Shown here is an 80-nucleotide RNA from Brachypodium distachyon, a member of the family "Small nucleolar RNA SNORD18".
Rfam links the family to the GO terms RNA processing and nucleolus.
Clan: SNORD18 clan.

[Rfam]
RNA sequence: GGGAGAUGAGGAAGAACAUUUGGUCCGUGUUUCUGAUCACCCCUUGAUGCAAGAAACAAAUUGCACUCACUUCUGAUCCC
Dot-bracket structure: ((((........................................................................))))
A reference for the family is Prislei et al. (1993), "Two different snoRNAs are encoded in introns of amphibian and human L1 ribosomal protein genes", Nucleic Acids Res.
It is annotated as a C/D-box small nucleolar RNA.